This 98-nucleotide RNA from Clostridium homopropionicum belongs to the Rfam family "Purine riboswitch aptamer". NCBI's taxonomy places the organism under Bacteria, Bacillati, Bacillota, Eubacteriales, Clostridium homopropionicum. The family's consensus secondary structure is taken from published work. The family is grouped with related families in Rfam's "Purine riboswitches". Rfam's curators write: Riboswitches are metabolite binding domains within certain messenger RNAs that serve as precision sensors for their corresponding targets.
RNA sequence: AAUAUAAUUUAUAUUUUCACUUAUAUAUACCUUGAAUAUGGCGAGGAGUAUCUACCGGAAACCUUAAAAUUCCGACUAUGAGUGGUUACUGCAUACUG
Number, nucleotide and partner (000 for none) at each position: 001a000002a000003u000004a000005u000006a000007a000008u000009u000010u000011a000012u000013a000014u000015u000016u000017u000018c084019a083020c082021u081022u080023a079024u078025a077026u000027a000028u000029a000030c046031c045032u044033u043034g042035a000036a000037u000038a000039u000040g000041g000042c034043g033044a032045g031046g030047a000048g000049u000050a000051u000052c000053u000054a000055c000056c074057g073058g072059a071060a070061a000062c000063c000064u000065u000066a000067a000068a000069a000070u060071u059072c058073c057074g056075a000076c000077u025078a024079u023080g022081a021082g020083u019084g018085g000086u000087u000088a000089c000090u000091g000092c000093a000094u000095a000096c000097u000098g000